The family of this 85-nucleotide RNA sequence from Kluyvera genomosp. 3 is "DsrA RNA". It is annotated as a small RNA. The base pairs follow the family's consensus structure, which is taken from published work.
RNA sequence: ACCACGUCAGGUUUCCUGAUGUAACGAAUAUUUCAAUGCUUCUUGCUUCGGCAAGGUUGAUCCCGACGCAGACGUGUCGGGAUUU
Numbered sequence: 001a002c003c004a005c006g007u008c009a010g011g012u013u014u015c016c017u018g019a020u021g022u023a024a025c026g027a028a029u030a031u032u033u034c035a036a037u038g039c040u041u042c043u044u045g046c047u048u049c050g051g052c053a054a055g056g057u058u059g060a061u062c063c064c065g066a067c068g069c070a071g072a073c074g075u076g077u078c079g080g081g082a083u084u085u
Stems, first nucleotide, its partner, number of pairs: 004022007026058002029054001031051002035047001037045002060083007068075002
Description: A search with the family's covariance model found it, with a score of 61 bits. Rfam's curators write: DsrA RNA regulates both transcription, by overcoming transcriptional silencing by the nucleoid-associated H-NS protein, and translation, by promoting efficient translation of the stress sigma factor, RpoS. These two activities of DsrA can be separated by mutation: the first of three stem-loops of the 85 nucleotide RNA is necessary for RpoS translation but not for anti-H-NS action, while the second stem-loop is essential for antisilencing and less critical for RpoS translation. The third stem-loop, which behaves as a transcription terminator, can be substituted by the trp transcription terminator without loss of either DsrA function. The sequence of the first stem-loop of DsrA is complementary with the upstream leader portion of RpoS messenger RNA, suggesting that pairing of DsrA with the RpoS message might be important for translational regulation. The literature on the family includes a 1995 paper in Proc Natl Acad Sci USA by Sledjeski and Gottesman, "A small RNA acts as an antisilencer of the H-NS-silenced rcsA gene of Escherichia coli".